[Rfam]
bZIP non canonical Hac1/Xbp1 intron: a 70-nucleotide RNA from Zopfia rhizophila. The family has 112 seed sequences and 1,325 matches in Rfam 15.1. Taxonomically the source falls in Zopfia rhizophila (Eukaryota, Opisthokonta, Ascomycota, leotiomyceta). The family's RNA type in Rfam is small RNA. bZIP intron RNA is a non-canonical intron that was first reported in HAC1 gene in yeast and XBP1 gene in Metazoa.
RNA sequence: CACCGAGAUCGACCAGACACGAUAUCCUGCAGCGAUAUUGUGCGACCUGCAGUGUCAGUCGACCUCGUUG
Dot-bracket structure: ((.((((..((((.......((((((.......))))))....(((.......))).))))..)))).))